[Rfam]
RNA sequence: AACGCGUGACUCUUCAAUCUCAGGACUCGCAUAAUUAGCAGAAUGCCGUCCUAAGGUUGUUGAGUUCUGCGUU
Numbered sequence: 001a002a003c004g005c006g007u008g009a010c011u012c013u014u015c016a017a018u019c020u021c022a023g024g025a026c027u028c029g030c031a032u033a034a035u036u037a038g039c040a041g042a043a044u045g046c047c048g049u050c051c052u053a054a055g056g057u058u059g060u061u062g063a064g065u066u067c068u069g070c071g072u073u
Stems, first nucleotide, its partner, number of pairs: 002072005010064003015059006022052005029046003
RNA: mir-676 microRNA precursor family